[Rfam]
RNA sequence: GCCGCCUCUAGCUUUAGCGGGCGAAAGCCAGAUCCCCCUGUCUGGUUGAGGCGGCAUCUUUUAUUCAGGG
Numbered sequence: 001g002c003c004g005c006c007u008c009u010a011g012c013u014u015u016a017g018c019g020g021g022c023g024a025a026a027g028c029c030a031g032a033u034c035c036c037c038c039u040g041u042c043u044g045g046u047u048g049a050g051g052c053g054g055c056a057u058c059u060u061u062u063a064u065u066c067a068g069g070g
Base pairs, nucleotide, nucleotide: 001055002054003053004052005051006050007049008048011022012021013020014019028045029044030043031042032041035070036069037068040065
Overview
The record is a 70-nucleotide sequence from an Alcaligenaceae bacterium, which matches "int-alpA RNA" in Rfam. Taxonomically the source falls in Alcaligenaceae (Bacteria, Pseudomonadati, Pseudomonadota, Betaproteobacteria). From the family's description: Acidobacteria (1 example), Planctomycetes (1 example), Proteobacteria. It is annotated as a small RNA.